This 330-nucleotide sequence from Ophiophagus hannah belongs to the Rfam family "7SK RNA".
RNA sequence: GGAUGUGACGGCGAUCUGGCUGCGACAUCUGUCACCCCAUUGAUCGCCAGGGUUGAUUCGGCUGAACUGGCUGGCUAGGCGGGUGUCCCCUUCCUCCCACACCACUCCAUGUGCGUCCCUCCUGAAGCUGCGUGCUCGGUGGAAGAGGACGACCAUCCCAGAUAGAAGGAGUGUACCGAUCUUUGGUCCAGGGUAUACAAUAGCUGUGCUCCCCUGCUAGAACCUCCAAACAAGCUCAAGGGUGACCUUCCUGUGAUCCACAAGGAAGGGAAAUGAGGGCUAGGGUUAGAUCCAGAAUUUGUGAGAGAAAAAGCUCUUGAACAACAGGCU
Numbered sequence: 001g002g003a004u005g006u007g008a009c010g011g012c013g014a015u016c017u018g019g020c021u022g023c024g025a026c027a028u029c030u031g032u033c034a035c036c037c038c039a040u041u042g043a044u045c046g047c048c049a050g051g052g053u054u055g056a057u058u059c060g061g062c063u064g065a066a067c068u069g070g071c072u073g074g075c076u077a078g079g080c081g082g083g084u085g086u087c088c089c090c091u092u093c094c095u096c097c098c099a100c101a102c103c104a105c106u107c108c109a110u111g112u113g114c115g116u117c118c119c120u121c122c123u124g125a126a127g128c129u130g131c132g133u134g135c136u137c138g139g140u141g142g143a144a145g146a147g148g149a150c151g152a153c154c155a156u157c158c159c160a161g162a163u164a165g166a167a168g169g170a171g172u173g174u175a176c177c178g179a180u181c182u183u184u185g186g187u188c189c190a191g192g193g194u195a196u197a198c199a200a201u202a203g204c205u206g207u208g209c210u211c212c213c214c215u216g217c218u219a220g221a222a223c224c225u226c227c228a229a230a231c232a233a234g235c236u237c238a239a240g241g242g243u244g245a246c247c248u249u250c251c252u253g254u255g256a257u258c259c260a261c262a263a264g265g266a267a268g269g270g271a272a273a274u275g276a277g278g279g280c281u282a283g284g285g286u287u288a289g290a291u292c293c294a295g296a297a298u299u300u301g302u303g304a305g306a307g308a309a310a311a312a313g314c315u316c317u318u319g320a321a322c323a324a325c326a327g328g329c330u
Stems, first nucleotide, its partner, number of pairs: 001108003005102003010097002013093002018090002024087010035074002037070003042067001044065002046062003117173001118169003121165001122139004127135002140162001147158003203274001205272001209268002212265002215262002225255001227253001232249003294330002299324004303318005
Background: 7SK was discovered as an abundant small nuclear RNA in the mid-70s but a possible function has only recently been suggested. Two independent studies have found that 7SK RNA binds the CDK9/cyclin T complex (known as elongation factor P-TEFb). Its Rfam clan is "7SK clan". The family's RNA type in Rfam is non-coding RNA gene. For this family Rfam cites "Structural analyses of the 7SK ribonucleoprotein (RNP), the most abundant human small RNP of unknown function" (Wassarman and Steitz, Mol Cell Biol, 1991). It scores 227 bits against the family's covariance model.